[Rfam]
The record is a 147-nucleotide sequence from Clostridium sp. CAG:354, which matches "glmS glucosamine-6-phosphate activated ribozyme aptamer" in Rfam. Pairs were carried over by alignment from the consensus structure, which is taken from published work. A search with the family's covariance model found it, with a score of 80 bits. NCBI's taxonomy places the organism under Bacteria, Bacillati, Bacillota, Clostridia, Clostridium. Rfam classes the family as a riboswitch. The literature on the family includes a 2004 paper in Nature by Winkler et al., "Control of gene expression by a natural metabolite-responsive ribozyme".

RNA sequence: GACAAUCUUUGAGCGCCAGGACACAUUUUUGUGUUGACGAGGUCAGAGCUAAUCGAAUUUUUCGGCGGGUACUCUGUGGUAUGCUACUACCAUAAAUAUUAGCAAAACCUACUAGUAAUAGUAGAACAAAUCUAAUUGUGUAGCUAU
Numbered sequence: 001g002a003c004a005a006u007c008u009u010u011g012a013g014c015g016c017c018a019g020g021a022c023a024c025a026u027u028u029u030u031g032u033g034u035u036g037a038c039g040a041g042g043u044c045a046g047a048g049c050u051a052a053u054c055g056a057a058u059u060u061u062u063c064g065g066c067g068g069g070u071a072c073u074c075u076g077u078g079g080u081a082u083g084c085u086a087c088u089a090c091c092a093u094a095a096a097u098a099u100u101a102g103c104a105a106a107a108c109c110u111a112c113u114a115g116u117a118a119u120a121g122u123a124g125a126a127c128a129a130a131u132c133u134a135a136u137u138g139u140g141u142a143g144c145u146a147u
Base pairs, nucleotide, nucleotide: 020035021034022033023032024031025030044076045075046074047073048072053065054064055063056062077092078091079090080089081088098136099135100134101133102132109124110123111122112121113120114119